RNA sequence: CUGUCCUGGCCUGUGCCUCUCCUCGCCUGUGCCCAGUUCUCACAGGGGAGUCCGGCGGGACACACAGUACUCUCCCUCUCAGUUUAGGAGGCCGUCCUAAGAAUGGGGCUGGUUCUUAAAGGCACGAGAGGACAAU
Numbered sequence: 001c002u003g004u005c006c007u008g009g010c011c012u013g014u015g016c017c018u019c020u021c022c023u024c025g026c027c028u029g030u031g032c033c034c035a036g037u038u039c040u041c042a043c044a045g046g047g048g049a050g051u052c053c054g055g056c057g058g059g060a061c062a063c064a065c066a067g068u069a070c071u072c073u074c075c076c077u078c079u080c081a082g083u084u085u086a087g088g089a090g091g092c093c094g095u096c097c098u099a100a101g102a103a104u105g106g107g108g109c110u111g112g113u114u115c116u117u118a119a120a121g122g123c124a125c126g127a128g129a130g131g132a133c134a135a136u
Stems, first nucleotide, its partner, number of pairs: 002062007010055002022050002026046005075131006082123004088117004092112002094109006
Shown here is a 136-nucleotide RNA sequence from Oryctolagus cuniculus, a member of the family "Small Cajal body specific RNA 11".
Taxonomically the source falls in Oryctolagus (Eukaryota, Metazoa, Vertebrata, Gnathostomata).
Pairs were carried over by alignment from the consensus structure, which was predicted with RNAalifold.
Its family is annotated with RNA processing, nucleolus and Cajal body in the Gene Ontology.
A reference for the family is Darzacq et al. (2002), "Cajal body-specific small nuclear RNAs: a novel class of 2'-O-methylation and pseudouridylation guide RNAs", EMBO J.
The family has 24 seed sequences and 853 matches in Rfam 15.1.
About the family: scaRNAs are a specific class of small nuclear RNAs which localise to the Cajal bodies and guide the modification of RNA polymerase II transcribed spliceosomal RNAs U1, U2, U4, U5 and U12. ACA57 belongs to the H/ACA box class of guide RNAs as it has the predicted hairpin-hinge-hairpin-tail structure, conserved H/ACA-box motifs and is found associated with GAR1. ACA57 is predicted to guide the pseudouridylation of the U5 spliceosomal RNA at position U43.